[Rfam]
RNA sequence: UGAAUAUUUCGGUAGGUGAGGUUACCGCAGGGAUACGGAUUGCUGCCGCGGAGUAGUGGAGACACUAUGAGAGGGCCAGCAGUUUAUGUCGAAACCAAGGCAUAGACUAACGCAAUUACAUCGCCCUGCGAAGCUGAAGCUUGAACGGUAGUGCAUA
Numbered sequence: 001u002g003a004a005u006a007u008u009u010c011g012g013u014a015g016g017u018g019a020g021g022u023u024a025c026c027g028c029a030g031g032g033a034u035a036c037g038g039a040u041u042g043c044u045g046c047c048g049c050g051g052a053g054u055a056g057u058g059g060a061g062a063c064a065c066u067a068u069g070a071g072a073g074g075g076c077c078a079g080c081a082g083u084u085u086a087u088g089u090c091g092a093a094a095c096c097a098a099g100g101c102a103u104a105g106a107c108u109a110a111c112g113c114a115a116u117u118a119c120a121u122c123g124c125c126c127u128g129c130g131a132a133g134c135u136g137a138a139g140c141u142u143g144a145a146c147g148g149u150a151g152u153g154c155a156u157a
Base pairs, nucleotide, nucleotide: 005153006152007151008150010148011146013098015141016140017139020135021134022133026130027129028128029127030126031125032124039116040115041114042113043112046074047073049071055066056065057064058063082107083106084105085104088101089100090099
RNA: M-box riboswitch aptamer (ykoK leader)
Organism: Christensenella hongkongensis